RNA sequence: GCAAUCAAUAGAGGUGCGGGGGACAGGGUACUGCUUCGUGAGGACAGACACUCGCAGAGCGGGGCAGGAAGGGGUCCUUCGCCGAAAGGGCAUGACGGGUCUGAUGUCAUGGCCUUGGGGUCGGGGUGUAAGCGCCGGCACUGUCAUGUCGAAAGACGUGGAGCGCUAUUGGUCAG
Numbered sequence: 001g002c003a004a005u006c007a008a009u010a011g012a013g014g015u016g017c018g019g020g021g022g023a024c025a026g027g028g029u030a031c032u033g034c035u036u037c038g039u040g041a042g043g044a045c046a047g048a049c050a051c052u053c054g055c056a057g058a059g060c061g062g063g064g065c066a067g068g069a070a071g072g073g074g075u076c077c078u079u080c081g082c083c084g085a086a087a088g089g090g091c092a093u094g095a096c097g098g099g100u101c102u103g104a105u106g107u108c109a110u111g112g113c114c115u116u117g118g119g120g121u122c123g124g125g126g127u128g129u130a131a132g133c134g135c136c137g138g139c140a141c142u143g144u145c146a147u148g149u150c151g152a153a154a155g156a157c158g159u160g161g162a163g164c165g166c167u168a169u170u171g172g173u174c175a176g
Stems, first nucleotide, its partner, number of pairs: 006171006016082009031067008086116004091111007117142002120139005126133002144161007

The family of this 176-nucleotide RNA sequence from Vescimonas coprocola is "Lysine riboswitch aptamer".
NCBI's taxonomy places the organism under Bacteria, Bacillota, Clostridia, Eubacteriales, Vescimonas.